[Rfam]
RNA sequence: GUUUGCUUGUGUGUGGAAGGUGUUCAGCAACAAGGAGAGGUGUGUUAACCUGUGUGUGGAUGGCAUUCAGCACCAAGGACAGGUGUGUUUACCU
Numbered sequence: 001g002u003u004u005g006c007u008u009g010u011g012u013g014u015g016g017a018a019g020g021u022g023u024u025c026a027g028c029a030a031c032a033a034g035g036a037g038a039g040g041u042g043u044g045u046u047a048a049c050c051u052g053u054g055u056g057u058g059g060a061u062g063g064c065a066u067u068c069a070g071c072a073c074c075a076a077g078g079a080c081a082g083g084u085g086u087g088u089u090u091a092c093c094u
Base pairs, nucleotide, nucleotide: 004085005084006083007082008081009080010079019074020073021072022071023070024069026067027066031062032061034055036053038051039050040049041048